[Rfam]
RNA sequence: ACGCUGUGAAAGACAAGGGUAGUGAGAUGUUUUAUAAGGAUCAGUUCGUCUCACUAGCCUGUCUUUGACGGGGUU
Numbered sequence: 001a002c003g004c005u006g007u008g009a010a011a012g013a014c015a016a017g018g019g020u021a022g023u024g025a026g027a028u029g030u031u032u033u034a035u036a037a038g039g040a041u042c043a044g045u046u047c048g049u050c051u052c053a054c055u056a057g058c059c060u061g062u063c064u065u066u067g068a069c070g071g072g073g074u075u
Stems, first nucleotide, its partner, number of pairs: 009066007017059002021055009
Description:
A member of the RNA family "mir-71 microRNA precursor family" from Varroa destructor, 75 nucleotides long. Taxonomically the source falls in Varroa (Eukaryota, Eumetazoa, Ecdysozoa, Arthropoda).